[Rfam]
Nucleotides: 081
Base pairs, nucleotide, nucleotide: 002080003079004078005077006076007075008074009073010072011071012070014068015067016066017065018064019063020062021061022060023059024058
Number, partner (000 for none) and nucleotide at each position: 001000a002080c003079c004078g005077c006076u007075g008074a009073g010072c011071c012070a013000a014068c015067u016066c017065u018064c019063c020062a021061g022060u023059c024058c025000c026000a027000a028000a029000a030000u031000a032000a033000a034000u035000u036000a037000a038000u039000c040000u041000u042000a043000a044000a045000a046000a047000a048000a049000a050000a051000u052000a053000a054000a055000u056000a057000a058024g059023g060022g061021c062020u063019g064018g065017a066016g067015a068014g069000a070012u071011g072010g073009c074008u075007c076006a077005g078004c079003g080002g081000u